A member of the RNA family "Small nucleolar RNA SNORA32" from Crocodylus porosus, 122 nucleotides long.
The organism belongs to Crocodylus, within Eukaryota.
Its family is annotated with RNA processing and nucleolus in the Gene Ontology.
ACA32 is a member of the H/ACA class of snoRNA that guide the sites of modification of uridines to pseudouridines.
The family's RNA type in Rfam is H/ACA-box small nucleolar RNA.
[Rfam]
RNA sequence: UGGUCAUUACCAAGGCUGCUAGGAAAACACUGUUUCUAGUAUGCUGUGGACAUGACCAUAAAGAGAAUCCAUCAGAUGUAUGCAUUGCUACUGAAGUAGCGUUUCAUCUGUUGGAAACAAGG
Dot-bracket structure: ..(((((..(((...............((............))...)))..)))))...........((((...((((.......(((..........)))...))))...)))).......